[Rfam]
RNA sequence: GGAAGAGACACGUUCCCCGGUGGGACGGCCGGACUUCAAAUUCGGUUGAGGCUGCCAGGCAGUCUCAGGUGGGUUCGACUCCCAUUCUCUUCC
Numbered sequence: 001g002g003a004a005g006a007g008a009c010a011c012g013u014u015c016c017c018c019g020g021u022g023g024g025a026c027g028g029c030c031g032g033a034c035u036u037c038a039a040a041u042u043c044g045g046u047u048g049a050g051g052c053u054g055c056c057a058g059g060c061a062g063u064c065u066c067a068g069g070u071g072g073g074u075u076c077g078a079c080u081c082c083c084a085u086u087c088u089c090u091u092c093c
Stems, first nucleotide, its partner, number of pairs: 001093008011027003015024003028046006048066005070084004

Rfam assigns this 93-nucleotide sequence from Novimethylophilus kurashikiensis to the family "Selenocysteine transfer RNA". For this family Rfam cites "Eukaryotic selenocysteine tRNA has the 9/4 secondary structure" (Mizutani and Goto, FEBS Lett, 2000). Clan: tRNA clan.